[Rfam]
RNA sequence: UAAGCUACUGUCCAGAGGAGGGAGGGCCGCCAUCUGCGGCCGUUACCUCUUCAACUGGGCGGUAAAAACC
Number, nucleotide and partner (000 for none) at each position: 001u000002a000003a000004g000005c000006u065007a000008c000009u062010g000011u000012c059013c058014a000015g056016a000017g050018g049019a048020g047021g046022g000023a000024g000025g000026g040027c039028c038029g037030c036031c000032a000033u000034c000035u000036g030037c029038g028039g027040c026041c000042g000043u000044u000045a000046c021047c020048u019049c018050u017051u000052c000053a000054a000055c000056u015057g000058g013059g012060c000061g000062g009063u000064a000065a006066a000067a000068a000069c000070c000
RNA: Hepatitis C virus stem-loop VII